[Rfam]
RNA sequence: AUCGCUUCUGGCCCCUGGCUAUGAUCAAUUGUUAGUUACUGUUCUUUUCGGCUUAAUCUCCGAUACGUACACUAUUGUGUACAACGAGAUUAACAUAUUUUUGGAAAUGGUUCGGUUAGCAGAAGCUUGCUUCUCGCCAAACAGCGUCGUCCCGGCAUUGCACAUGCCGUCGCAAUCGGCGCACACCCC
Numbered sequence: 001a002u003c004g005c006u007u008c009u010g011g012c013c014c015c016u017g018g019c020u021a022u023g024a025u026c027a028a029u030u031g032u033u034a035g036u037u038a039c040u041g042u043u044c045u046u047u048u049c050g051g052c053u054u055a056a057u058c059u060c061c062g063a064u065a066c067g068u069a070c071a072c073u074a075u076u077g078u079g080u081a082c083a084a085c086g087a088g089a090u091u092a093a094c095a096u097a098u099u100u101u102u103g104g105a106a107a108u109g110g111u112u113c114g115g116u117u118a119g120c121a122g123a124a125g126c127u128u129g130c131u132u133c134u135c136g137c138c139a140a141a142c143a144g145c146g147u148c149g150u151c152c153c154g155g156c157a158u159u160g161c162a163c164a165u166g167c168c169g170u171c172g173c174a175a176u177c178g179g180c181g182c183a184c185a186c187c188c189c
Stems, first nucleotide, its partner, number of pairs: 007024002010020004046065001048063004067082006110142003114138003122133004144182006153172004